mir-71 microRNA precursor family: a 71-nucleotide sequence from Cloeon dipterum. Rfam 15.1 lists 372 matches to the family in 291 species. The literature on the family includes a 2008 paper in PLoS One by Yu et al., "The silkworm (Bombyx mori) microRNAs and their expressions in multiple developmental stages". Rfam links the family to the GO terms miRNA-mediated post-transcriptional gene silencing and RISC complex.
[Rfam]
RNA sequence: UCGGCGUGAAAGACAUGGGUAGUGAGAUGUGCGUUGUGCCACCGUCUCACUAUCUUGUCUUUCAUGCGGGU
Numbered sequence: 001u002c003g004g005c006g007u008g009a010a011a012g013a014c015a016u017g018g019g020u021a022g023u024g025a026g027a028u029g030u031g032c033g034u035u036g037u038g039c040c041a042c043c044g045u046c047u048c049a050c051u052a053u054c055u056u057g058u059c060u061u062u063c064a065u066g067c068g069g070g071u
Stems, first nucleotide, its partner, number of pairs: 008063008017055003021051009